[Rfam]
RNA sequence: CACUUUGCUGGUGGGACAUGGUUUAACCGCAGCGGCAAAGGAAGACGCCCCAACUGUGAGGAAGACGAGGAAGCAGGGGCAAGGGUGGCGAAGUUAGCGCCCGAUCGUCGAACGGCUGACGGGU
Numbered sequence: 001c002a003c004u005u006u007g008c009u010g011g012u013g014g015g016a017c018a019u020g021g022u023u024u025a026a027c028c029g030c031a032g033c034g035g036c037a038a039a040g041g042a043a044g045a046c047g048c049c050c051c052a053a054c055u056g057u058g059a060g061g062a063a064g065a066c067g068a069g070g071a072a073g074c075a076g077g078g079g080c081a082a083g084g085g086u087g088g089c090g091a092a093g094u095u096a097g098c099g100c101c102c103g104a105u106c107g108u109c110g111a112a113c114g115g116c117u118g119a120c121g122g123g124u
Stems, first nucleotide, its partner, number of pairs: 003040008029057004047080005065108004083102004093120006

Rfam assigns this 124-nucleotide RNA from Variovorax sp. PBL-E5 to the family "Betaproteobacteria-1 RNA". Lineage of the source: Bacteria > Betaproteobacteria > Burkholderiales > Comamonadaceae > Variovorax. By type it is a small RNA.